Record summary:
A member of the RNA family "Group II catalytic intron D1-D4-3" from Neobacillus vireti, 165 nucleotides long.
RNA sequence: AGUAUCGUGAGAUUUCGUGCGGAGGACCUGAAGGCAAAACUCGGAACAGGUGGCUGAAACUAGGUUGGCUGGUAAGAUGGGAUAACCCUGCCAAAAAUGGGAAUGUCCAAUACCACUUGUAUCUUAUUAGUUAUGAGGACUGGCUUCGAGUGAAAGGCGAUGACG
Numbered sequence: 001a002g003u004a005u006c007g008u009g010a011g012a013u014u015u016c017g018u019g020c021g022g023a024g025g026a027c028c029u030g031a032a033g034g035c036a037a038a039a040c041u042c043g044g045a046a047c048a049g050g051u052g053g054c055u056g057a058a059a060c061u062a063g064g065u066u067g068g069c070u071g072g073u074a075a076g077a078u079g080g081g082a083u084a085a086c087c088c089u090g091c092c093a094a095a096a097a098u099g100g101g102a103a104u105g106u107c108c109a110a111u112a113c114c115a116c117u118u119g120u121a122u123c124u125u126a127u128u129a130g131u132u133a134u135g136a137g138g139a140c141u142g143g144c145u146u147c148g149a150g151u152g153a154a155a156g157g158c159g160a161u162g163a164c165g
Stems, first nucleotide, its partner, number of pairs: 002015001004013003027165001029163001031161001034158001035156001039151006047142003060138002068131003072127007080108004086101003

Pairs were carried over by alignment from the consensus structure.
NCBI's taxonomy places the organism under Bacteria, Bacillota, Caryophanales, Neobacillus, Neobacillus vireti.